[Rfam]
RNA sequence: UGUUCUUCUUCAUCCACAGACCUGUGUCUUGAUGUCUCGGCGCCCUUUCGAGGGCUGUCGGUCGACAACUCGACAGUUCGACCGUACCUAUGGAGCCAUCUUUUACACCAUGAUGUCAAUCUUCCGGUCGACAGGUCUCAGAACAAGUUGGAUGCUUUCUCAAAGCCUGAGGUCGCCCUUUCGGGGGCUUGAUUUCGGUGGAGGGCGAGCAUGCCUGGGCGUCUGAUCUCCGAUCCCUUUACUGACGGCCGUCGGCUAGUGAAGUCUGGGAAAAACCCAUUCAGCCUACAAUA
Number, nucleotide and partner (000 for none) at each position: 001u000002g000003u000004u000005c000006u000007u000008c000009u000010u000011c000012a000013u000014c000015c000016a000017c000018a138019g137020a136021c135022c134023u133024g132025u131026g074027u073028c072029u000030u000031g069032a000033u067034g066035u065036c064037u061038c060039g059040g058041c057042g055043c054044c000045c052046u051047u000048u000049c000050g000051a046052g045053g000054g043055c042056u000057g041058u040059c039060g038061g037062u000063c000064g036065a035066c034067a033068a000069c031070u000071c000072g028073a027074c026075a000076g000077u000078u000079c000080g000081a000082c130083c000084g000085u000086a128087c127088c126089u000090a000091u118092g117093g116094a000095g114096c000097c112098a000099u000100c000101u000102u000103u000104u000105a000106c000107a000108c000109c000110a000111u000112g097113a000114u095115g000116u093117c092118a091119a000120u000121c000122u000123u000124c000125c000126g088127g087128u086129c000130g082131a025132c024133a023134g022135g021136u020137c019138u018139c000140a000141g000142a000143a000144c000145a000146a000147g000148u000149u211150g000151g000152a000153u000154g206155c000156u000157u000158u000159c000160u000161c000162a000163a000164a000165g199166c198167c197168u000169g196170a195171g194172g193173u192174c191175g188176c187177c186178c185179u184180u000181u000182c000183g000184g179185g178186g177187g176188c175189u000190u000191g174192a173193u172194u171195u170196c169197g167198g166199u165200g000201g000202a000203g000204g000205g000206c154207g000208a000209g000210c000211a149212u000213g000214c000215c000216u000217g000218g286219g285220c284221g282222u000223c000224u279225g278226a000227u000228c000229u000230c000231c000232g000233a000234u271235c270236c269237c268238u000239u000240u000241a265242c264243u263244g000245a000246c000247g257248g256249c255250c254251g000252u000253c000254g250255g249256c248257u247258a000259g000260u000261g000262a000263a243264g242265u241266c000267u000268g237269g236270g235271a234272a000273a000274a000275a000276c000277c000278c225279a224280u000281u000282c221283a000284g220285c219286c218287u000288a000289c000290a000291a000292u000293a000

The family of this 293-nucleotide sequence from Lophium mytilinum is "A. fumigatus sRNA Afu_309". NCBI's taxonomy places the organism under Eukaryota, saccharomyceta, Pezizomycotina, leotiomyceta, Lophium. For this family Rfam cites "Small ncRNA transcriptome analysis from Aspergillus fumigatus suggests a novel mechanism for regulation of protein synthesis" (Jochl et al., Nucleic Acids Res, 2008).